[Rfam]
RNA: terC RNA
RNA sequence: AUCGGGGUCCGGGCCCCUCUGGUAGCCUUCUAUAGGCUGCGAUGUCGGACUCUCUCA
Numbered sequence: 001a002u003c004g005g006g007g008u009c010c011g012g013g014c015c016c017c018u019c020u021g022g023u024a025g026c027c028u029u030c031u032a033u034a035g036g037c038u039g040c041g042a043u044g045u046c047g048g049a050c051u052c053u054c055u056c057a
Stems, first nucleotide, its partner, number of pairs: 006051007022040007